[Rfam]
RNA sequence: GACACUAUUACUUUGCGCGCUAGGCAGGGACCAGGACUGGGUUUUUACAUAUGUGGCAGUCAGGUACCUGAAGUAGCGCGCGGAGUGCUAGGAA
Numbered sequence: 001g002a003c004a005c006u007a008u009u010a011c012u013u014u015g016c017g018c019g020c021u022a023g024g025c026a027g028g029g030a031c032c033a034g035g036a037c038u039g040g041g042u043u044u045u046u047a048c049a050u051a052u053g054u055g056g057c058a059g060u061c062a063g064g065u066a067c068c069u070g071a072a073g074u075a076g077c078g079c080g081c082g083g084a085g086u087g088c089u090a091g092g093a094a
Base pairs, nucleotide, nucleotide: 009087010086011085012084014082016080017079018078019077020076021075022074030065031064032063035061036060037059038058
RNA: mir-275 microRNA precursor family